[Rfam]
The family of this 394-nucleotide RNA sequence from Epidalea calamita is "Nuclear RNase P". Rfam links the family to the GO terms tRNA processing, ribonuclease P complex and ribonuclease P activity. The family is grouped with related families in Rfam's "RNaseP clan".
RNA sequence: GGAAGGAAGCUCACUGUAGAGGUCACGUGCUGAGUGCGUCACUCUUGUGAUGUCAUCUCUAUCCCACCUCCGGGAAGGUCUGAGACAGGAGCCCCUCGCCGCCCUCACAGGGCGUCACCUGAUGUCGGGUGAGUGAGCCCCCAGCAACCCCACGUUGGAGUGGACCGGUCCGUUAUGUGGGAGUGGCUAUGCAAAAGACACCGGGUAGGGGUGUGGUGAGAUGGGCGGGUCACUGAUUUGAGGUCCGCCCACUCUUCAUCUGCACCUCUGCCUAGUGGAUGCCGCCACCUCCCCGGACCUUGGAAGCGACUCACGGCUGGCUUGCUGAGUCCAAUGGCUGAGGCGAGGCAGCUGUGCGCCUCGUAACCCAAUUCAGACCACUCUCCGGAAUUCC
Dot-bracket structure: (((((((..[[[[.[...((((.........((((((((((......))))).)).))).......)))).........(((((.....((((......(((((.....)))))((((((......))))))(((((.(..............(.(............................................................................................................................................).)........).)))))))))..................].]]]](((((((........))))))).......))))).......)))....))))
It is one of the family's seed sequences.